[Rfam]
Rfam assigns this 31-nucleotide sequence from Hordeivirus poae to the family "Pseudoknot of upstream pseudoknot domain (UPD) of the 3'UTR".
Rfam classes the family as a cis-regulatory element.
It is one of the family's seed sequences.
The family's consensus secondary structure is taken from published work.
The literature on the family includes a 1993 paper in Mol Cell Biol by Leathers et al., "A phylogenetically conserved sequence within viral 3' untranslated RNA pseudoknots regulates translation".
RNA sequence: AGUGUUUUCAUGUCCACUUAAAUCGAACAUG
Dot-bracket structure: [[[[....((((((]]]]......).)))))